Shown here is an 81-nucleotide RNA sequence from Lactuca saligna, a member of the family "Small nucleolar RNA J33". Rfam classes the family as a C/D-box small nucleolar RNA. Rfam links the family to the GO terms RNA processing and nucleolus. It scores 53 bits against the family's covariance model. The literature on the family includes a 2003 paper in Nucleic Acids Res by Chen et al., "The high diversity of snoRNAs in plants: identification and comparative study of 120 snoRNA genes from Oryza sativa". NCBI's taxonomy places the organism under Eukaryota, Euphyllophyta, Mesangiospermae, Asterales, Lactuca. Rfam 15.1 lists 831 matches to the family in 223 species.

RNA sequence: CAGUAAGGGGAAUGAUGAACAAUUAUCGGGUACUCCAAGAGCUAAACUCGCUUGAUGCUGUAUCUGAGAAAGACAUUGGUG
Numbered sequence: 001c002a003g004u005a006a007g008g009g010g011a012a013u014g015a016u017g018a019a020c021a022a023u024u025a026u027c028g029g030g031u032a033c034u035c036c037a038a039g040a041g042c043u044a045a046a047c048u049c050g051c052u053u054g055a056u057g058c059u060g061u062a063u064c065u066g067a068g069a070a071a072g073a074c075a076u077u078g079g080u081g
Base pairs, nucleotide, nucleotide: 001081002080004078005077006076